A member of the RNA family "pan motif" from Oxobacter pfennigii, 83 nucleotides long. Pairs were carried over by alignment from the consensus structure, which is taken from published work. It scores 46 bits against the family's covariance model.
[Rfam]
RNA sequence: AAGCCGGCAUCAAAAAUUGAGCCGGACUACAAAAAAUUUAUUUAUUAAUUUGUCCGGUAUCUUAAAAAGAACUGGAACAGGAG
Numbered sequence: 001a002a003g004c005c006g007g008c009a010u011c012a013a014a015a016a017u018u019g020a021g022c023c024g025g026a027c028u029a030c031a032a033a034a035a036a037u038u039u040a041u042u043u044a045u046u047a048a049u050u051u052g053u054c055c056g057g058u059a060u061c062u063u064a065a066a067a068a069g070a071a072c073u074g075g076a077a078c079a080g081g082a083g
Stems, first nucleotide, its partner, number of pairs: 002028002004025005010020002051079003054075005060070003